[Rfam]
RNA sequence: GGCAACUGCCCUGUGAGGGGGGGGAAAUUGUUUUAAAAGGUACUUUCGUUGGUUAUCGCACCACUUAUAGUGGGACUAAUAUUAUCAUUAGUUGAUCAUUGGCUAGAUGAUUAGAAGAUAAUCAUACAGUUGUCACUAAUUCCAACGCUGAUUCGCAACAGUGAAAAG
Numbered sequence: 001g002g003c004a005a006c007u008g009c010c011c012u013g014u015g016a017g018g019g020g021g022g023g024g025a026a027a028u029u030g031u032u033u034u035a036a037a038a039g040g041u042a043c044u045u046u047c048g049u050u051g052g053u054u055a056u057c058g059c060a061c062c063a064c065u066u067a068u069a070g071u072g073g074g075a076c077u078a079a080u081a082u083u084a085u086c087a088u089u090a091g092u093u094g095a096u097c098a099u100u101g102g103c104u105a106g107a108u109g110a111u112u113a114g115a116a117g118a119u120a121a122u123c124a125u126a127c128a129g130u131u132g133u134c135a136c137u138a139a140u141u142c143c144a145a146c147g148c149u150g151a152u153u154c155g156c157a158a159c160a161g162u163g164a165a166a167a168g
Stems, first nucleotide, its partner, number of pairs: 001134008009020004022034003050124007059114001061073004076091005092106003096102002146163005